[Rfam]
RNA: mir-1010 microRNA precursor family
Organism: Drosophila pseudoobscura
RNA sequence: UCGUGCUCAACGGGUAAGUGGUGUAGAUGAAACAAAUUAACCAACCUUUAUUGUGUUGGAUUGUUUCACCUAUCGUUCCAUUUGCAGGUACGA
Numbered sequence: 001u002c003g004u005g006c007u008c009a010a011c012g013g014g015u016a017a018g019u020g021g022u023g024u025a026g027a028u029g030a031a032a033c034a035a036a037u038u039a040a041c042c043a044a045c046c047u048u049u050a051u052u053g054u055g056u057u058g059g060a061u062u063g064u065u066u067c068a069c070c071u072a073u074c075g076u077u078c079c080a081u082u083u084g085c086a087g088g089u090a091c092g093a
Stems, first nucleotide, its partner, number of pairs: 001093005014085008023073004028068008041059005047053001